[Rfam]
RNA: FMN riboswitch aptamer (RFN element)
Organism: Maledivibacter halophilus
RNA sequence: UUUUUCCUUCGGGGCAGGGUGUAAUUCCCGACCGGCGGUAUAGGCCGCGAACUGCUUUAGGCAGUUGAUCUGGUGAAAUUCCAGAGCCGACAGUAUAGUCUGGAUGGUAGAAGGAGAUU
Numbered sequence: 001u002u003u004u005u006c007c008u009u010c011g012g013g014g015c016a017g018g019g020u021g022u023a024a025u026u027c028c029c030g031a032c033c034g035g036c037g038g039u040a041u042a043g044g045c046c047g048c049g050a051a052c053u054g055c056u057u058u059a060g061g062c063a064g065u066u067g068a069u070c071u072g073g074u075g076a077a078a079u080u081c082c083a084g085a086g087c088c089g090a091c092a093g094u095a096u097a098g099u100c101u102g103g104a105u106g107g108u109a110g111a112a113g114g115a116g117a118u119u
Base pairs, nucleotide, nucleotide: 003117004116005115006114007113008112009111010110017029018028019027031099032098033089034088035048036047037046038045043087051065052064053063069085070084071083072082073081091102092101093100